The record is a 157-nucleotide sequence from Ferrimonas marina, which matches "Gammaprotebacteria rimP leader" in Rfam. A search with the family's covariance model found it, with a score of 58 bits.

RNA sequence: GAAGCGAACGCUUCGAACAGGGUAUAGUUAACGUCAAGCCCCGUUUAAAACCGGGGCUUUUUGUUAUCUGUCUCUUGGCGGUUGACUAUCCUAGUACUGUUUCUCCCUGUGCAGCAGUACUGUUAGUCGUAAGAAUGGGCUGUUCGGCCCUUUUUUU
Numbered sequence: 001g002a003a004g005c006g007a008a009c010g011c012u013u014c015g016a017a018c019a020g021g022g023u024a025u026a027g028u029u030a031a032c033g034u035c036a037a038g039c040c041c042c043g044u045u046u047a048a049a050a051c052c053g054g055g056g057c058u059u060u061u062u063g064u065u066a067u068c069u070g071u072c073u074c075u076u077g078g079c080g081g082u083u084g085a086c087u088a089u090c091c092u093a094g095u096a097c098u099g100u101u102u103c104u105c106c107c108u109g110u111g112c113a114g115c116a117g118u119a120c121u122g123u124u125a126g127u128c129g130u131a132a133g134a135a136u137g138g139g140c141u142g143u144u145c146g147g148c149c150c151u152u153u154u155u156u157u
Base pairs, nucleotide, nucleotide: 036059037058038057039056040055041054042053043052137150138149139148140147